[Rfam]
RNA sequence: GUUAACGGAACGUCGACUAAUAUCUGCCACGUCCUGUGGCAAACGUCGACGCCAACACAUCCUGUGUA
Numbered sequence: 001g002u003u004a005a006c007g008g009a010a011c012g013u014c015g016a017c018u019a020a021u022a023u024c025u026g027c028c029a030c031g032u033c034c035u036g037u038g039g040c041a042a043a044c045g046u047c048g049a050c051g052c053c054a055a056c057a058c059a060u061c062c063u064g065u066g067u068a
Stems, first nucleotide, its partner, number of pairs: 011051007026040005055067004

Annotation: A member of the RNA family "Bacillaceae-1 RNA" from Bacillus sp. V59.32b, 68 nucleotides long. Taxonomically the source falls in Bacillus (Bacteria, Bacillati, Bacilli, Bacillaceae). It scores 66 bits against the family's covariance model.